[Rfam]
Shown here is a 103-nucleotide RNA from Nicotiana tabacum, a member of the family "Small nucleolar RNA snoR99". Gene Ontology terms of the family: nucleolus and RNA processing. The family's consensus secondary structure was predicted with WAR.

RNA sequence: UUGCUUUAGGGAUGAACAAGUCCCUGAUAAUUGAACUCCAUUCUUCACUUUGUCAGCAUUGUUUUAUUUUAUGCUUUGCUGAUCAUUAUCAGAUGAUACACUU
Numbered sequence: 001u002u003g004c005u006u007u008a009g010g011g012a013u014g015a016a017c018a019a020g021u022c023c024c025u026g027a028u029a030a031u032u033g034a035a036c037u038c039c040a041u042u043c044u045u046c047a048c049u050u051u052g053u054c055a056g057c058a059u060u061g062u063u064u065u066a067u068u069u070u071a072u073g074c075u076u077u078g079c080u081g082a083u084c085a086u087u088a089u090c091a092g093a094u095g096a097u098a099c100a101c102u103u
Stems, first nucleotide, its partner, number of pairs: 039095004052083007